[Rfam]
RNA sequence: ACCAUUCAUAUCCUUCACAGUGUUCCUAAUAGAUAGUUAUUAUUACACUAUCUUUAGCAACACUUUUGAGAUAAGGAUGG
Numbered sequence: 001a002c003c004a005u006u007c008a009u010a011u012c013c014u015u016c017a018c019a020g021u022g023u024u025c026c027u028a029a030u031a032g033a034u035a036g037u038u039a040u041u042a043u044u045a046c047a048c049u050a051u052c053u054u055u056a057g058c059a060a061c062a063c064u065u066u067u068g069a070g071a072u073a074a075g076g077a078u079g080g
Stems, first nucleotide, its partner, number of pairs: 002080004007075001009073004014069001019064006026057004031053007038045002